The family of this 89-nucleotide sequence from Peribacillus muralis is "pan motif". The family's RNA type in Rfam is cis-regulatory element.
RNA sequence: UGGGCAGUAUCUAUUUGAACUGCACCCCCAUAAAUGCCAAAUUAUUUGAAAAUCUGCCUUGAUCCAGAGUACUGGACUGGGACGGAGGG
Numbered sequence: 001u002g003g004g005c006a007g008u009a010u011c012u013a014u015u016u017g018a019a020c021u022g023c024a025c026c027c028c029c030a031u032a033a034a035u036g037c038c039a040a041a042u043u044a045u046u047u048g049a050a051a052a053u054c055u056g057c058c059u060u061g062a063u064c065c066a067g068a069g070u071a072c073u074g075g076a077c078u079g080g081g082a083c084g085g086a087g088g089g
Stems, first nucleotide, its partner, number of pairs: 002026002004023005010018002054085003057081003061077001063076005